Shown here is a 445-nucleotide part of an RNA, a member of the family "Eukaryotic large subunit ribosomal RNA". Gene Ontology terms of the family: structural constituent of ribosome and ribosome.
[Rfam]
RNA sequence: CGAUCGGCGCCGGCGGUUCGUCUUUAGUUCGGGGCUGUUCAGUGGUGUCUGCUUGUCGGGAGGGCCGCAGCGGCGGGGAGUGCUCACGUGCCUCCGCUCUGUGUUCGUUCUGGCGCAAACCAUGCAUUCAGUCCCGGCGACGAGCCAGCAUCGGCUUCAUGUUUAGUGCGCGUGGCUGACGGGCGCUGGGGAUCAAAGGGCCUGGCGGGCCGGCUUCACAGCCGUGUCCCACCGGUGCGACCCAGCGUACCUGCCAUCGCAGGGGCCGAGGAACCAAUUAACCCAUGCCCGCAAGGGCGAGGCAGUGUGUCAUCGUGGCGGGCAUGCGUGUGGGGAUCGGGAACCGAUGCCCGUGUGCAUGCCUGUCGCUCUGUGGCACGCGUCCAUCUCUGGUGGGUUAGUGAUGCUGGCGGAACGGCGCUGAUCGACCCGUCUUGAAACACGG
Numbered sequence: 001c002g003a004u005c006g007g008c009g010c011c012g013g014c015g016g017u018u019c020g021u022c023u024u025u026a027g028u029u030c031g032g033g034g035c036u037g038u039u040c041a042g043u044g045g046u047g048u049c050u051g052c053u054u055g056u057c058g059g060g061a062g063g064g065c066c067g068c069a070g071c072g073g074c075g076g077g078g079a080g081u082g083c084u085c086a087c088g089u090g091c092c093u094c095c096g097c098u099c100u101g102u103g104u105u106c107g108u109u110c111u112g113g114c115g116c117a118a119a120c121c122a123u124g125c126a127u128u129c130a131g132u133c134c135c136g137g138c139g140a141c142g143a144g145c146c147a148g149c150a151u152c153g154g155c156u157u158c159a160u161g162u163u164u165a166g167u168g169c170g171c172g173u174g175g176c177u178g179a180c181g182g183g184c185g186c187u188g189g190g191g192a193u194c195a196a197a198g199g200g201c202c203u204g205g206c207g208g209g210c211c212g213g214c215u216u217c218a219c220a221g222c223c224g225u226g227u228c229c230c231a232c233c234g235g236u237g238c239g240a241c242c243c244a245g246c247g248u249a250c251c252u253g254c255c256a257u258c259g260c261a262g263g264g265g266c267c268g269a270g271g272a273a274c275c276a277a278u279u280a281a282c283c284c285a286u287g288c289c290c291g292c293a294a295g296g297g298c299g300a301g302g303c304a305g306u307g308u309g310u311c312a313u314c315g316u317g318g319c320g321g322g323c324a325u326g327c328g329u330g331u332g333g334g335g336a337u338c339g340g341g342a343a344c345c346g347a348u349g350c351c352c353g354u355g356u357g358c359a360u361g362c363c364u365g366u367c368g369c370u371c372u373g374u375g376g377c378a379c380g381c382g383u384c385c386a387u388c389u390c391u392g393g394u395g396g397g398u399u400a401g402u403g404a405u406g407c408u409g410g411c412g413g414a415a416c417g418g419c420g421c422u423g424a425u426c427g428a429c430c431c432g433u434c435u436u437g438a439a440a441c442a443c444g445g
Stems, first nucleotide, its partner, number of pairs: 001427012017142001020141003024137002146409007430445004